[Rfam]
RNA sequence: CCCUAGCCCAGAUAGUAGCGGCAUCCUUUUGUGCCCCAAAACCGCUGUAAAGAGCGGUUUUGGGGUAUAAAAGAUAGAGCGGAUAGCUGGAAAUUGC
Numbered sequence: 001c002c003c004u005a006g007c008c009c010a011g012a013u014a015g016u017a018g019c020g021g022c023a024u025c026c027u028u029u030u031g032u033g034c035c036c037c038a039a040a041a042c043c044g045c046u047g048u049a050a051a052g053a054g055c056g057g058u059u060u061u062g063g064g065g066u067a068u069a070a071a072a073g074a075u076a077g078a079g080c081g082g083a084u085a086g087c088u089g090g091a092a093a094u095u096g097c
Stems, first nucleotide, its partner, number of pairs: 009089003013085002018080002023075003029070018